[Rfam]
RNA sequence: AGCAAGAUACUGCGUUCAGGCUUUCGAUACGCCGGGGCGCCCGGGCGUCAGACCCGCCGGAGCAGUGCGGGGAAUCGUUACGGAGCCGCUGUCCCGCGGCUCCACAACGCGCAGGU
Numbered sequence: 001a002g003c004a005a006g007a008u009a010c011u012g013c014g015u016u017c018a019g020g021c022u023u024u025c026g027a028u029a030c031g032c033c034g035g036g037g038c039g040c041c042c043g044g045g046c047g048u049c050a051g052a053c054c055c056g057c058c059g060g061a062g063c064a065g066u067g068c069g070g071g072g073a074a075u076c077g078u079u080a081c082g083g084a085g086c087c088g089c090u091g092u093c094c095c096g097c098g099g100c101u102c103c104a105c106a107a108c109g110c111g112c113a114g115g116u
Stems, first nucleotide, its partner, number of pairs: 007116002010114006025077004029048005035042001053071005082103003086099004

The family of this 116-nucleotide RNA sequence from Flavonifractor sp. An10 is "DUF3268 RNA". NCBI's taxonomy places the organism under Bacteria, Bacillati, Bacillota, Clostridia, Flavonifractor. It is annotated as a small RNA.